Hepatitis C virus stem-loop SL1412 RNA: a 48-nucleotide RNA sequence from Orthohepacivirus hominis. Rfam describes the family as follows. HCV_SL1412 is a stem-loop in the coding region of the C (core) gene. The literature on the family includes a 2016 paper in Mol Cell by Pirakitikulr et al., "The Coding Region of the HCV Genome Contains a Network of Regulatory RNA Structures".
[Rfam]
RNA sequence: GCAGGCCUCGCCUACUUCUCCAUGCAAGGUAACUGGGCCAAGGUCGGC
Numbered sequence: 001g002c003a004g005g006c007c008u009c010g011c012c013u014a015c016u017u018c019u020c021c022a023u024g025c026a027a028g029g030u031a032a033c034u035g036g037g038c039c040a041a042g043g044u045c046g047g048c
Stems, first nucleotide, its partner, number of pairs: 006043003010038005020029002